[Rfam]
RNA sequence: CGCUGAAUCCACAGUGAACCGGGGAACCACGUUUCGCGGGCCGCAGCCCCCAUCGCGGCCCAGGGGUGAAUCCGCGCUCGCGCGGUAGGGAGCACUUCCCUCUCGAACCCGACAGCUAACCCGGUAGGCG
Dot-bracket structure: ((((...((......))((((((....(..................................)(((.....((((......))))..((((.........))))...))).........)))))).))))
A member of the RNA family "c-di-AMP riboswitch aptamer (ydaO/yuaA leader)" from Allocatelliglobosispora scoriae, 130 nucleotides long. Rfam describes the family as follows. This family represents a conserved RNA structure found upstream of the ydaO and yuaA genes in Bacillus subtilis and related genes in other bacteria. The pairing is the family consensus, mapped onto this sequence. The family has 106 seed sequences and 7,607 matches in Rfam 15.1.